[Rfam]
Source information
This 100-nucleotide RNA from Salipaludibacillus agaradhaerens belongs to the Rfam family "Purine riboswitch aptamer". The source organism's lineage runs through Bacteria, Bacillota, Caryophanales, Bacillaceae and Salipaludibacillus.

RNA sequence: GCACCAUAUGAUGGGAGAAUUCGUAUAACCUCAAAAAUAAGGUUUGAGGGUCUCUAUUAGGAACCGUAAAUUCCUAACUACGAAUAAAGGUGAAACAUGC
Numbered sequence: 001g002c003a004c005c006a007u008a009u010g011a012u013g014g015g016a017g018a019a020u021u022c023g024u025a026u027a028a029c030c031u032c033a034a035a036a037a038u039a040a041g042g043u044u045u046g047a048g049g050g051u052c053u054c055u056a057u058u059a060g061g062a063a064c065c066g067u068a069a070a071u072u073c074c075u076a077a078c079u080a081c082g083a084a085u086a087a088a089g090g091u092g093a094a095a096c097a098u099g100c
Base pairs, nucleotide, nucleotide: 019085020084021083022082023081024080025079029049030048031047032046033045034044035043058076059075060074061073062072063071